c-di-AMP riboswitch aptamer (ydaO/yuaA leader): a 154-nucleotide sequence from Zafaria cholistanensis.
A search with the family's covariance model found it, with a score of 60 bits.
The organism belongs to Zafaria, within Bacteria.
Rfam describes the family as follows. This family represents a conserved RNA structure found upstream of the ydaO and yuaA genes in Bacillus subtilis and related genes in other bacteria.
Nucleotides: 154
Base pairs, nucleotide, nucleotide: 002140003139004138023135024134025133026132027131028130033059034058060120061119062118068097069096070095071094072093073092074091100114101113102112103111
Number, partner (000 for none) and nucleotide at each position: 001000u002140u003139g004138c005000a006000u007000a008000a009000g010000c011000c012000g013000c014000c015000g016000g017000g018000c019000a020000g021000u022000g023135g024134c025133g026132g027131g028130g029000g030000a031000a032000c033059c034058a035000c036000a037000u038000u039000u040000c041000g042000g043000g044000u045000c046000c047000a048000u049000g050000c051000g052000g053000a054000c055000c056000c057000u058034u059033g060120g061119g062118g063000u064000u065000a066000a067000g068097u069096g070095c071094c072093u073092u074091g075000a076000g077000c078000c079000a080000g081000c082000u083000a084000u085000c086000c087000g088000g089000u090000c091074c092073g093072a094071g095070g096069c097068g098000c099000c100114g101113g102112g103111u104000g105000g106000c107000u108000c109000c110000c111103a112102c113101c114100c115000g116000a117000a118062u119061c120060c121000g122000a123000c124000a125000g126000c127000u128000c129000a130028c131027c132026u133025c134024g135023c136000a137000g138004g139003c140002a141000u142000u143000g144000g145000g146000a147000g148000a149000g150000g151000u152000c153000c154000a